[Rfam]
The record is a 98-nucleotide sequence from Carya illinoinensis, which matches "Small nucleolar RNA Z161/Z228" in Rfam. Gene Ontology terms of the family: RNA processing and nucleolus. Lineage of the source: Eukaryota > Streptophyta > Gunneridae > Fagales > Carya. Clan: SNORD35 clan.

RNA sequence: AAAUCAGAUGAUGAGUUUGGAUUAAAGUUUCUCACGACGGUCGUCUGAGACACGUUAAGUGUCGUUGCUGAUGCAAUGAUCCAAUGCUUCUGAUGGUU
Dot-bracket structure: ((.(..............................................(((.....))).................................).))